The record is a 373-nucleotide RNA from Microtus ochrogaster, which matches "Bag-1 internal ribosome entry site (IRES)" in Rfam.
The organism belongs to Microtus, within Eukaryota.
About the family: This family represents the bag-1 internal ribosome entry site (IRES). When expressed the BAG-1 protein is known to enhance the anti-apoptotic properties of Bcl-2. Although bag-1 translation usually occurs via a cap-dependent mechanism it has been found to contain a IRES in its 5' UTR. Translation via the IRES has been found to be common following heat shock when cap-dependent scanning is compromised.
RNA sequence: GGGGCGGUGAACAAACGCGGGCCUGGCGGAUCGCAGCAGCCCUCGGAGACCGCGAGGGGACCGGGAGCCGCUGGGACUCCGGCUGCGCGUCCCUCGGCCUGGCCGGGAGUCGCGCCAGUCGGAGCCCCUGGCCGAGCGCGGCUCGCCUCCCUCUCAGCGUUCCUCUGUCCGCAGUGCAGCCAGCGGGUAUGACCGAUCCACCAGGGGCGCCGCCGCCGCCGGCGCUUACUUGCCGCGGAUGAAGAAGAAAGUCCGUCCCCGCUCUGCUCAAAGCGAGAAGGUGGCUCAUUGCAGGGAUUUGAUCAGGGGUAAGAAAGCGACCCGCAGCAAGAAAGGGACCGGGACCAAGGAGGUGACCCAGUUAGAGGAGGUG
Numbered sequence: 001g002g003g004g005c006g007g008u009g010a011a012c013a014a015a016c017g018c019g020g021g022c023c024u025g026g027c028g029g030a031u032c033g034c035a036g037c038a039g040c041c042c043u044c045g046g047a048g049a050c051c052g053c054g055a056g057g058g059g060a061c062c063g064g065g066a067g068c069c070g071c072u073g074g075g076a077c078u079c080c081g082g083c084u085g086c087g088c089g090u091c092c093c094u095c096g097g098c099c100u101g102g103c104c105g106g107g108a109g110u111c112g113c114g115c116c117a118g119u120c121g122g123a124g125c126c127c128c129u130g131g132c133c134g135a136g137c138g139c140g141g142c143u144c145g146c147c148u149c150c151c152u153c154u155c156a157g158c159g160u161u162c163c164u165c166u167g168u169c170c171g172c173a174g175u176g177c178a179g180c181c182a183g184c185g186g187g188u189a190u191g192a193c194c195g196a197u198c199c200a201c202c203a204g205g206g207g208c209g210c211c212g213c214c215g216c217c218g219c220c221g222g223c224g225c226u227u228a229c230u231u232g233c234c235g236c237g238g239a240u241g242a243a244g245a246a247g248a249a250a251g252u253c254c255g256u257c258c259c260c261g262c263u264c265u266g267c268u269c270a271a272a273g274c275g276a277g278a279a280g281g282u283g284g285c286u287c288a289u290u291g292c293a294g295g296g297a298u299u300u301g302a303u304c305a306g307g308g309g310u311a312a313g314a315a316a317g318c319g320a321c322c323c324g325c326a327g328c329a330a331g332a333a334a335g336g337g338a339c340c341g342g343g344a345c346c347a348a349g350g351a352g353g354u355g356a357c358c359c360a361g362u363u364a365g366a367g368g369a370g371g372u373g
Base pairs, nucleotide, nucleotide: 020104021103022102023101025099026098027097039092042089044052045051046050061082062081063080064079065078068075144355145354146353147352148351149350150349166189167188168187169186170185171184205227206226207225208224209223210222211221212220260275261274262273263272